[Rfam]
RNA sequence: GACCGGGGGUAGUCGAAAUCCGGAGCCGGGGAACCAAUCUUCCCUGGGGUGAAUCGCGCAAACCGGAUCUACCUACCUGUGGACCCGUGCGCGCGUAGGGCUCUUUGCCGCCCGAACCCGUCAGCUAACCCGGUAGGCGUCACGACAAAGAGGA
Numbered sequence: 001g002a003c004c005g006g007g008g009g010u011a012g013u014c015g016a017a018a019u020c021c022g023g024a025g026c027c028g029g030g031g032a033a034c035c036a037a038u039c040u041u042c043c044c045u046g047g048g049g050u051g052a053a054u055c056g057c058g059c060a061a062a063c064c065g066g067a068u069c070u071a072c073c074u075a076c077c078u079g080u081g082g083a084c085c086c087g088u089g090c091g092c093g094c095g096u097a098g099g100g101c102u103c104u105u106u107g108c109c110g111c112c113c114g115a116a117c118c119c120g121u122c123a124g125c126u127a128a129c130c131c132g133g134u135a136g137g138c139g140u141c142a143c144g145a146c147a148a149a150g151a152g153g154a
Stems, first nucleotide, its partner, number of pairs: 003023005025134006035046002047119003055095004098113004
Notes: Rfam assigns this 154-nucleotide RNA from Nocardioides iriomotensis to the family "c-di-AMP riboswitch aptamer (ydaO/yuaA leader)". Gene Ontology terms of the family: regulation of gene expression and cyclic-di-AMP binding. The source organism's lineage runs through Bacteria, Actinomycetes, Propionibacteriales, Nocardioidaceae and Nocardioides.